[Rfam]
RNA sequence: AUGCAUCUAUUUGACCUGGAGCAGUUCCUGUCUGCUGCUAAGGUUUUCAUUACAGAUGCAAGAAAAAAGUGUCCUUGCCCUUUCUGUCUAAUUGUGGCAGCUAUGAUUGAAUGGGGGAAUACAAGG
Numbered sequence: 001a002u003g004c005a006u007c008u009a010u011u012u013g014a015c016c017u018g019g020a021g022c023a024g025u026u027c028c029u030g031u032c033u034g035c036u037g038c039u040a041a042g043g044u045u046u047u048c049a050u051u052a053c054a055g056a057u058g059c060a061a062g063a064a065a066a067a068a069g070u071g072u073c074c075u076u077g078c079c080c081u082u083u084c085u086g087u088c089u090a091a092u093u094g095u096g097g098c099a100g101c102u103a104u105g106a107u108u109g110a111a112u113g114g115g116g117g118a119a120u121a122c123a124a125g126g
Stems, first nucleotide, its partner, number of pairs: 002060007011049001013045004020036005072118005080109001084100005
The family of this 126-nucleotide RNA sequence from Ailuropoda melanoleuca is "Small nucleolar RNA SNORA31". Gene Ontology terms of the family: nucleolus and RNA processing. By type it is an H/ACA-box small nucleolar RNA. A reference for the family is Huttenhofer et al. (2001), "RNomics: an experimental approach that identifies 201 candidates for novel, small, non-messenger RNAs in mouse", EMBO J. Rfam 15.1 lists 2,094 matches to the family in 626 species. About the family: ACA31 (SNORA31) belongs to the H/ACA class of snoRNAs which are thought to guide the sites of modification of uridines to pseudouridines. ACA31 is predicted to guide the pseudouridylation of U3713 in 28S rRNA and U218 in 18S rRNA. This family includes the mouse homologue snoMBI-161. The organism belongs to Ailuropoda, within Eukaryota.